[Rfam]
RNA: Small nucleolar RNA Z119
Organism: Zea mays
RNA sequence: UUUUGGAGAUGAUGAUUCUCAUCAGAGGCUGUUUCUGAGGGGAGCCAAGAGCUUUUUCCCUGUGCUGCAAGAAAACUGAUUGCCGUUCUGAUCCAAAG
Numbered sequence: 001u002u003u004u005g006g007a008g009a010u011g012a013u014g015a016u017u018c019u020c021a022u023c024a025g026a027g028g029c030u031g032u033u034u035c036u037g038a039g040g041g042g043a044g045c046c047a048a049g050a051g052c053u054u055u056u057u058c059c060c061u062g063u064g065c066u067g068c069a070a071g072a073a074a075a076c077u078g079a080u081u082g083c084c085g086u087u088c089u090g091a092u093c094c095a096a097a098g
Stems, first nucleotide, its partner, number of pairs: 003096005042054004067083004